Shown here is a 72-nucleotide RNA from Camelus ferus, a member of the family "Small nucleolar RNA SNORD107". The base pairs follow the family's consensus structure, which was predicted with WAR. Taxonomically the source falls in Camelus (Eukaryota, Deuterostomia, Craniata, Amniota).
RNA sequence: GGUUUAUGAUGACACGGGACCUUGUCUGAACAUGCUGAUUUCAAAGUUGGAGCUUGAAAUGACACUGAAAUC
Numbered sequence: 001g002g003u004u005u006a007u008g009a010u011g012a013c014a015c016g017g018g019a020c021c022u023u024g025u026c027u028g029a030a031c032a033u034g035c036u037g038a039u040u041u042c043a044a045a046g047u048u049g050g051a052g053c054u055u056g057a058a059a060u061g062a063c064a065c066u067g068a069a070a071u072c
Stems, first nucleotide, its partner, number of pairs: 001072004
The literature on the family includes a 2001 paper in Hum Mol Genet by Runte et al., "The IC-SNURF-SNRPN transcript serves as a host for multiple small nucleolar RNA species and as an antisense RNA for UBE3A". The family's RNA type in Rfam is C/D-box small nucleolar RNA.